Shown here is a 320-nucleotide sequence from Manihot esculenta, a member of the family "TrkB IRES".
Pairs were carried over by alignment from the consensus structure, which was predicted with RNAfold.
The match comes from Rfam's covariance-model search (42 bits).
Gene Ontology term of the family: ribosome binding.
Rfam describes the family as follows. This family represents the TrkB internal ribosome entry site (IRES) which is present in the 5' leader sequence of the mRNA. TrkB is a neurotrophin receptor which is essential for the development and maintenance of the nervous system. The IRES element allows cap-independent translation of TrkB which may be needed for efficient translation in neuronal dendrites.
By type it is an internal ribosome entry site.
The family has 16 seed sequences and 130 matches in Rfam 15.1.
[Rfam]
RNA sequence: UGCUGCACAGCAGCUUGCUGCUGUGCUGCGCAGCAGCAAGCUGCUGCGCAGCAGCAAGCUGCUGUGCUGCAGCUUGCUGCUGCUGUGCAGCAGCUGCUGUGCUGCAGCUUGCUGCUGCUGUGCAGCAGCUGCUGUGCAGCUUGCUGCUGUGCUGCAGCUUGCUGCUGUGCUGCAGCUUGCUGCUGCUGUGCUGCAGCUUGCUGCUGCUGUGCAGCAGCUGCUGUGCUGCAGCUUGCUGCGCAGCAGCAGCUGCUGUGCUGCAGCAGCUGCUGUGCAGCAGCAGCUGCUGUGCAGCAGCAGCUGCUGCACAGCAGCUUGCU
Numbered sequence: 001u002g003c004u005g006c007a008c009a010g011c012a013g014c015u016u017g018c019u020g021c022u023g024u025g026c027u028g029c030g031c032a033g034c035a036g037c038a039a040g041c042u043g044c045u046g047c048g049c050a051g052c053a054g055c056a057a058g059c060u061g062c063u064g065u066g067c068u069g070c071a072g073c074u075u076g077c078u079g080c081u082g083c084u085g086u087g088c089a090g091c092a093g094c095u096g097c098u099g100u101g102c103u104g105c106a107g108c109u110u111g112c113u114g115c116u117g118c119u120g121u122g123c124a125g126c127a128g129c130u131g132c133u134g135u136g137c138a139g140c141u142u143g144c145u146g147c148u149g150u151g152c153u154g155c156a157g158c159u160u161g162c163u164g165c166u167g168u169g170c171u172g173c174a175g176c177u178u179g180c181u182g183c184u185g186c187u188g189u190g191c192u193g194c195a196g197c198u199u200g201c202u203g204c205u206g207c208u209g210u211g212c213a214g215c216a217g218c219u220g221c222u223g224u225g226c227u228g229c230a231g232c233u234u235g236c237u238g239c240g241c242a243g244c245a246g247c248a249g250c251u252g253c254u255g256u257g258c259u260g261c262a263g264c265a266g267c268u269g270c271u272g273u274g275c276a277g278c279a280g281c282a283g284c285u286g287c288u289g290u291g292c293a294g295c296a297g298c299a300g301c302u303g304c305u306g307c308a309c310a311g312c313a314g315c316u317u318g319c320u
Stems, first nucleotide, its partner, number of pairs: 001279010021043001023041001025037004045265002051258003057109001059107004065099002070096005076091004111150002114147002116139001120137003124133003154253005160248002163245003173238004179232005190207002193201003213227004282316014297301001